About this RNA:
Rfam assigns this 65-nucleotide RNA from Medioppia subpectinata to the family "HDV ribozyme from F. prausnitzii".
RNA sequence: CUCUCCCAUAAGAUCAACCUCCUCGUGGUGGGAGAGGGGCAACGGCUUUGCCGGCUAAUGAUCCA
Numbered sequence: 001c002u003c004u005c006c007c008a009u010a011a012g013a014u015c016a017a018c019c020u021c022c023u024c025g026u027g028g029u030g031g032g033a034g035a036g037g038g039g040c041a042a043c044g045g046c047u048u049u050g051c052c053g054g055c056u057a058a059u060g061a062u063c064c065a
Base pairs, nucleotide, nucleotide: 001036002035003034004033005032006031007030017029018028019027043053044052045051046050

A search with the family's covariance model found it, with a score of 45 bits. Taxonomically the source falls in Medioppia (Eukaryota, Opisthokonta, Protostomia, Brachypylina). The base pairs follow the family's consensus structure, which is taken from published work.